A member of the RNA family "Fungal signal recognition particle RNA" from Hortaea werneckii, 264 nucleotides long. The family's RNA type in Rfam is non-coding RNA gene. The source organism's lineage runs through Eukaryota, Opisthokonta, leotiomyceta, Teratosphaeriaceae and Hortaea werneckii. Its family is annotated with signal recognition particle, endoplasmic reticulum targeting, signal recognition particle, plasma membrane targeting and SRP-dependent cotranslational protein targeting to membrane, signal sequence recognition in the Gene Ontology.

RNA sequence: UAGCUGUAAUGGCUUUUGGCGAAGUGUCCCUCACUUCUCAAUCAUCUCUUUCACAACCCAAUGAUGCGUGCCCAGUUCGAACUCGGUGGUGGUCGUCCACUCGCUACGGUAACGGGCGAUUUGCUGGCGCGGCUCUAAGCUACUGCGGAAUUCUUCAGCCGAGUAAUCGGGCAGAGAGCUGCAGGCCAUGGAGUGGCGGCGCUGGAUUACAUGCGUUGUUGGCGAGAUGAGUUUGGGAAGAUUGAUGGGGGACGCAACGUUUUU
Numbered sequence: 001u002a003g004c005u006g007u008a009a010u011g012g013c014u015u016u017u018g019g020c021g022a023a024g025u026g027u028c029c030c031u032c033a034c035u036u037c038u039c040a041a042u043c044a045u046c047u048c049u050u051u052c053a054c055a056a057c058c059c060a061a062u063g064a065u066g067c068g069u070g071c072c073c074a075g076u077u078c079g080a081a082c083u084c085g086g087u088g089g090u091g092g093u094c095g096u097c098c099a100c101u102c103g104c105u106a107c108g109g110u111a112a113c114g115g116g117c118g119a120u121u122u123g124c125u126g127g128c129g130c131g132g133c134u135c136u137a138a139g140c141u142a143c144u145g146c147g148g149a150a151u152u153c154u155u156c157a158g159c160c161g162a163g164u165a166a167u168c169g170g171g172c173a174g175a176g177a178g179c180u181g182c183a184g185g186c187c188a189u190g191g192a193g194u195g196g197c198g199g200c201g202c203u204g205g206a207u208u209a210c211a212u213g214c215g216u217u218g219u220u221g222g223c224g225a226g227a228u229g230a231g232u233u234u235g236g237g238a239a240g241a242u243u244g245a246u247g248g249g250g251g252a253c254g255c256a257a258c259g260u261u262u263u264u
Base pairs, nucleotide, nucleotide: 002014003013004012018261019260020259021258024255026253027252028251029250030249031248032247034240035239036238037237039235040234041233042230043229044228045227046226047225048224050222062218063217064216065215066214067213068212069211070210072205073204074203075202076201077199078198079197081194082193083192084191086189087188088187089186091134093132094131095130096129097127098126099125101119102118103117104116105115107114108113135139143184144183145182146181147180148179152177153176154175155174160169161168162167